A member of the RNA family "Bacillaceae-1 RNA" from Lentibacillus cibarius, 56 nucleotides long. The match comes from Rfam's covariance-model search (38 bits). The family's RNA type in Rfam is small RNA.
RNA sequence: CGAAGGCUAAAACCGCGACGUCCAGUCGCAAUGCCUGCAUUGGCACGUCUUGUGCG
Numbered sequence: 001c002g003a004a005g006g007c008u009a010a011a012a013c014c015g016c017g018a019c020g021u022c023c024a025g026u027c028g029c030a031a032u033g034c035c036u037g038c039a040u041u042g043g044c045a046c047g048u049c050u051u052g053u054g055c056g
Stems, first nucleotide, its partner, number of pairs: 002038001004036004015029005043055004